The record is a 55-nucleotide RNA sequence from Symplocastrum torsivum, which matches "Nitrogen stress-induced RNA 1" in Rfam. By type it is a small RNA. Taxonomically the source falls in Symplocastrum torsivum (Bacteria, Oscillatoriales, Microcoleaceae, Symplocastrum).

[Rfam]
RNA sequence: UGGUAGAUGCACCCUGUAUUCACCCCCCAAGCUUUACGGUUCGGGGGUUUUUUCU
Numbered sequence: 001u002g003g004u005a006g007a008u009g010c011a012c013c014c015u016g017u018a019u020u021c022a023c024c025c026c027c028c029a030a031g032c033u034u035u036a037c038g039g040u041u042c043g044g045g046g047g048u049u050u051u052u053u054c055u
Base pairs, nucleotide, nucleotide: 002013003012004011024047025046026045027044028043030041031040032039